[Rfam]
A member of the RNA family "UnaL2 LINE 3' element" from Coregonus sp. 'balchen', 55 nucleotides long. The source organism's lineage runs through Eukaryota, Opisthokonta, Teleostomi, Clupeocephala and Coregonus. Its family is annotated with transposition, RNA-mediated in the Gene Ontology. For this family Rfam cites "Solution structure of an RNA stem-loop derived from the 3' conserved region of eel LINE UnaL2" (Baba et al., RNA, 2004). It scores 60 bits against the family's covariance model.
RNA sequence: UACACAAAAAAAUGUAUGCACGCUUUGGAUAAAAGCGUCUGCUAAAUGGCAUAUU
Numbered sequence: 001u002a003c004a005c006a007a008a009a010a011a012a013u014g015u016a017u018g019c020a021c022g023c024u025u026u027g028g029a030u031a032a033a034a035g036c037g038u039c040u041g042c043u044a045a046a047u048g049g050c051a052u053a054u055u
Stems, first nucleotide, its partner, number of pairs: 013044001014042003021037006